RNA: c-di-AMP riboswitch aptamer (ydaO/yuaA leader)
RNA sequence: GGAGAAGGAAUGCCGAAUCUAGAGUCGUCUAGAACGGGGGAUUUUAUUUAUGGGGUUAAUCGCGUAUAAUACGCGAAGGGCUUACACCUUCCUGCCCGAAUCCGUCAACUAACCUCGUAGGCAAUUGUGAAAGGUGAA
Numbered sequence: 001g002g003a004g005a006a007g008g009a010a011u012g013c014c015g016a017a018u019c020u021a022g023a024g025u026c027g028u029c030u031a032g033a034a035c036g037g038g039g040g041a042u043u044u045u046a047u048u049u050a051u052g053g054g055g056u057u058a059a060u061c062g063c064g065u066a067u068a069a070u071a072c073g074c075g076a077a078g079g080g081c082u083u084a085c086a087c088c089u090u091c092c093u094g095c096c097c098g099a100a101u102c103c104g105u106c107a108a109c110u111a112a113c114c115u116c117g118u119a120g121g122c123a124a125u126u127g128u129g130a131a132a133g134g135u136g137a138a
Stems, first nucleotide, its partner, number of pairs: 011123004018033005034118006044052001053103003061075004078097004